[Rfam]
RNA sequence: CUGCAUCUGUUUGACAGACCUGGAGCAAAUGGCCAAGAAACUCCUCUGGUUCUUGCUGAGAUGCAAGUCACGGAUUCCUUGUGCUUUCUACCUGUCUGACUGUGGUAGUCUGGAUUGAAUAAAGGAACACAAGC
Numbered sequence: 001c002u003g004c005a006u007c008u009g010u011u012u013g014a015c016a017g018a019c020c021u022g023g024a025g026c027a028a029a030u031g032g033c034c035a036a037g038a039a040a041c042u043c044c045u046c047u048g049g050u051u052c053u054u055g056c057u058g059a060g061a062u063g064c065a066a067g068u069c070a071c072g073g074a075u076u077c078c079u080u081g082u083g084c085u086u087u088c089u090a091c092c093u094g095u096c097u098g099a100c101u102g103u104g105g106u107a108g109u110c111u112g113g114a115u116u117g118a119a120u121a122a123a124g125g126a127a128c129a130c131a132a133g134c
Stems, first nucleotide, its partner, number of pairs: 002065007012055002017051004023043003076126005084117001087114004092108005
RNA: Small nucleolar RNA SNORA31